[Rfam]
RNA sequence: GGAGUCGGCCGGACAGCCGCGCCGCCUGCGGGCGGGGAGGAAAGUCCGGGCUCCACAGGGCAGGGUGCCAGGUAACGCCUGGGCGGCGCGAGCCGACGGAAAGUGCCACAGAAAACAGACCGCCAAAGCGCCCUCCGGGGCGCCGGCAAGGGUGAAAAGGUGCGGUAAGAGCGCACCGCGCCGGUGGCAACACUCGGCGGCACGGUAAACCCCACCCGGAGCAAGACCAAAUAGGGGAGCAAUGGCGCGGCCCGCGCCGCUCCCGGGUAGGUCGCUCGAGGCGCACGGCGACGUGCGCCCCAGAUGAAUGGCUGUCCACGACAGAACCCGGCUUACAGGCCGACUCCCCCA
Numbered sequence: 001g002g003a004g005u006c007g008g009c010c011g012g013a014c015a016g017c018c019g020c021g022c023c024g025c026c027u028g029c030g031g032g033c034g035g036g037g038a039g040g041a042a043a044g045u046c047c048g049g050g051c052u053c054c055a056c057a058g059g060g061c062a063g064g065g066u067g068c069c070a071g072g073u074a075a076c077g078c079c080u081g082g083g084c085g086g087c088g089c090g091a092g093c094c095g096a097c098g099g100a101a102a103g104u105g106c107c108a109c110a111g112a113a114a115a116c117a118g119a120c121c122g123c124c125a126a127a128g129c130g131c132c133c134u135c136c137g138g139g140g141c142g143c144c145g146g147c148a149a150g151g152g153u154g155a156a157a158a159g160g161u162g163c164g165g166u167a168a169g170a171g172c173g174c175a176c177c178g179c180g181c182c183g184g185u186g187g188c189a190a191c192a193c194u195c196g197g198c199g200g201c202a203c204g205g206u207a208a209a210c211c212c213c214a215c216c217c218g219g220a221g222c223a224a225g226a227c228c229a230a231a232u233a234g235g236g237g238a239g240c241a242a243u244g245g246c247g248c249g250g251c252c253c254g255c256g257c258c259g260c261u262c263c264c265g266g267g268u269a270g271g272u273c274g275c276u277c278g279a280g281g282c283g284c285a286c287g288g289c290g291a292c293g294u295g296c297g298c299c300c301c302a303g304a305u306g307a308a309u310g311g312c313u314g315u316c317c318a319c320g321a322c323a324g325a326a327c328c329c330g331g332c333u334u335a336c337a338g339g340c341c342g343a344c345u346c347c348c349c350c351a
Base pairs, nucleotide, nucleotide: 001347002346003345004344005343006342007341008340009339010338011336012316013315014314015313016312017311018310020037022035023034024033025032026031042334043333044332046331047330048329049328050327051221052220053219054218058253059252060251061250063217064216065215066214067213068082069081070080071079072078083097084095085094086093087092098212099211103210104209105206106205107204120151121150122147123146124145128143129142130141131140132139133138159177160176161175162174163173164172178201179199180198181197182196183195184193185192186191225273226272227271228270235264236263237262238261239260240259244258245257246256247255248254280299281298282297283296284295285294286293287292
Dot-bracket structure: ((((((((((((((((((.(.(((((....))))).)....[[[.[[[[[((((...[[[[.((((((((((.....)))))(((((....)))).)((...(((((............(((((...((((((....)))))).)))..)).......((((((.......))))))(((((((((....))).))))).)..)))..)))))))))))))...((((......((((((...(((((.]]]]))))))))))).....))))......((((((((....))))))))..........)))))))..........]]]]]]]].).))))))))))....

About this RNA
The record is a 351-nucleotide RNA from Thioalbus denitrificans, which matches "Bacterial RNase P class A" in Rfam.